RNA sequence: CUGUGGGGAUUUGUUGGGGAGAAAUAAAGUGGAUGUGGGUGUCAAUCCCACCAGCUGUAACAAUCAGCCCUUCAGCGGCCAAAGCCUCAGUAGCAGGGCCCACGCAAAGAUUGUUGCAAACGCCAUCUUGCAUGUCUUUAUUGCCUGCUUUGCCAAUGCCAUGGAUUUUGCCAUUUUUAAUGCCAAUAUCGGCUUUAUAAAUGCCGGUGUAAUCCACAAUCAAGGCGUUGGUGAGCACGAGAUCGAGUUCAUGGCUGCUGGGGCUGUUGGUUUGUGCCAUCCCAUCGCGAAUGG
Numbered sequence: 001c002u003g004u005g006g007g008g009a010u011u012u013g014u015u016g017g018g019g020a021g022a023a024a025u026a027a028a029g030u031g032g033a034u035g036u037g038g039g040u041g042u043c044a045a046u047c048c049c050a051c052c053a054g055c056u057g058u059a060a061c062a063a064u065c066a067g068c069c070c071u072u073c074a075g076c077g078g079c080c081a082a083a084g085c086c087u088c089a090g091u092a093g094c095a096g097g098g099c100c101c102a103c104g105c106a107a108a109g110a111u112u113g114u115u116g117c118a119a120a121c122g123c124c125a126u127c128u129u130g131c132a133u134g135u136c137u138u139u140a141u142u143g144c145c146u147g148c149u150u151u152g153c154c155a156a157u158g159c160c161a162u163g164g165a166u167u168u169u170g171c172c173a174u175u176u177u178u179a180a181u182g183c184c185a186a187u188a189u190c191g192g193c194u195u196u197a198u199a200a201a202u203g204c205c206g207g208u209g210u211a212a213u214c215c216a217c218a219a220u221c222a223a224g225g226c227g228u229u230g231g232u233g234a235g236c237a238c239g240a241g242a243u244c245g246a247g248u249u250c251a252u253g254g255c256u257g258c259u260g261g262g263g264c265u266g267u268u269g270g271u272u273u274g275u276g277c278c279a280u281c282c283c284a285u286c287g288c289g290a291a292u293g294g
Stems, first nucleotide, its partner, number of pairs: 001294003006288001008286002011165002015161003018076001021073003030053003034050002037048004057069001077154002081150002084148002090144004095139002097136003104131002107129005113123002172274002177270006183263002192226005206215002229260003236253002241250002

The record is a 294-nucleotide sequence from Helicobacter bizzozeronii, which matches "5' ureB small RNA" in Rfam. Rfam 15.1 lists 4,812 matches to the family in 4,480 species.